[Rfam]
RNA: mir-2765 microRNA precursor family
RNA sequence: AGUGUAGCGAGGGGUGGUAACUCCACCACCGUUGGCUUAACUGCUAAAAUGGCGGCCAACGGUAGAGGAGUUCCUCAUUCUCGCUACACA
Dot-bracket structure: ..((((((((((...((.(((((..(..(((((((((................)))))))))..)..))))).))...))))))))))..